Notes: Pseudomonas sRNA CrcZ: a 388-nucleotide RNA from Pseudomonas sp. HLS-6. Rfam 15.1 lists 127 matches to the family in 96 species. It scores 325 bits against the family's covariance model. By type it is a small RNA. Rfam links the family to the GO term carbon catabolite repression of transcription. The base pairs follow the family's consensus structure, which was predicted with WAR. The organism belongs to Pseudomonas, within Bacteria. The literature on the family includes a 2009 paper in Proc Natl Acad Sci U S A by Sonnleitner et al., "Small RNA as global regulator of carbon catabolite repression in Pseudomonas aeruginosa".
RNA sequence: ACAACAACAAUAAAAAAUGCGACAACCCAAUAAAAAUAAGACGCAACGACUCUGGCAUAACAAGAACAACCACGGCAGAGACGCAGCUAACAGAUUUUUUUGGAGAUGAUGUGCUUUUCGGGGGCGUGCCCCCACGACCAGGCAGAGAACAAUAAAACUACCCCAAGGUAGCGCCCGUCAGGUUGUAUCAGCAAUGAUGAAAGCAGAUCAGCGCUCAAAAAAAUACGUUUGCUCUUGAUCCCGGAUGGGGAUCGCCCGCAACACAGAGGUCGUGGCCGACAAAAACAACAAAAGGCCACCCUCACAAUAAUAAAAAGAGCACGCAACAAUCUUUGAGGGGAGCCUAGGCUCCCCUCAGUGCUUCCUGCCUCCUCAAAAAUCGCCCACA
Numbered sequence: 001a002c003a004a005c006a007a008c009a010a011u012a013a014a015a016a017a018u019g020c021g022a023c024a025a026c027c028c029a030a031u032a033a034a035a036a037u038a039a040g041a042c043g044c045a046a047c048g049a050c051u052c053u054g055g056c057a058u059a060a061c062a063a064g065a066a067c068a069a070c071c072a073c074g075g076c077a078g079a080g081a082c083g084c085a086g087c088u089a090a091c092a093g094a095u096u097u098u099u100u101u102g103g104a105g106a107u108g109a110u111g112u113g114c115u116u117u118u119c120g121g122g123g124g125c126g127u128g129c130c131c132c133c134a135c136g137a138c139c140a141g142g143c144a145g146a147g148a149a150c151a152a153u154a155a156a157a158c159u160a161c162c163c164c165a166a167g168g169u170a171g172c173g174c175c176c177g178u179c180a181g182g183u184u185g186u187a188u189c190a191g192c193a194a195u196g197a198u199g200a201a202a203g204c205a206g207a208u209c210a211g212c213g214c215u216c217a218a219a220a221a222a223a224u225a226c227g228u229u230u231g232c233u234c235u236u237g238a239u240c241c242c243g244g245a246u247g248g249g250g251a252u253c254g255c256c257c258g259c260a261a262c263a264c265a266g267a268g269g270u271c272g273u274g275g276c277c278g279a280c281a282a283a284a285a286c287a288a289c290a291a292a293a294g295g296c297c298a299c300c301c302u303c304a305c306a307a308u309a310a311u312a313a314a315a316a317g318a319g320c321a322c323g324c325a326a327c328a329a330u331c332u333u334u335g336a337g338g339g340g341a342g343c344c345u346a347g348g349c350u351c352c353c354c355u356c357a358g359u360g361c362u363u364c365c366u367g368c369c370u371c372c373u374c375a376a377a378a379a380u381c382g383c384c385c386a387c388a
Stems, first nucleotide, its partner, number of pairs: 047083002050080004098220005112213003135185005141179001158171005238252005268370002271367002273298004319361004335356009